[Rfam]
A member of the RNA family "mir-92 microRNA precursor family" from Sphaeramia orbicularis, 78 nucleotides long. Rfam's curators write: This family represents the microRNA precursor mir-92. Human miR-92 has two predicted hairpin precursor sequences: mir-92-1 on chromosome 13 and mir-92-2 on chromosome X. miR-92 has also been cloned from mouse embryonic stem cells. The mature sequence is excised from the 3' arm of the hairpin.
RNA sequence: CUUUCUCUACAGGUUGGGAGAGGUAGCAAUGCUCUGUACUCAGGUGGUAUUGCACUUGUCCCGGCCUGUAGGGGACCU
Numbered sequence: 001c002u003u004u005c006u007c008u009a010c011a012g013g014u015u016g017g018g019a020g021a022g023g024u025a026g027c028a029a030u031g032c033u034c035u036g037u038a039c040u041c042a043g044g045u046g047g048u049a050u051u052g053c054a055c056u057u058g059u060c061c062c063g064g065c066c067u068g069u070a071g072g073g074g075a076c077c078u
Base pairs, nucleotide, nucleotide: 004074005073006072009069010068011067012066013065014064016062017061018060019059022056023055024054026053027052028051029050030049031048032047033046

Gene Ontology terms of the family: miRNA-mediated post-transcriptional gene silencing and RISC complex. Pairs were carried over by alignment from the consensus structure, which was predicted with PFOLD. For this family Rfam cites "miRNPs: a novel class of ribonucleoproteins containing numerous microRNAs" (Mourelatos et al., Genes Dev, 2002). Lineage of the source: Eukaryota > Eumetazoa > Vertebrata > Teleostei > Sphaeramia. The match comes from Rfam's covariance-model search (67 bits).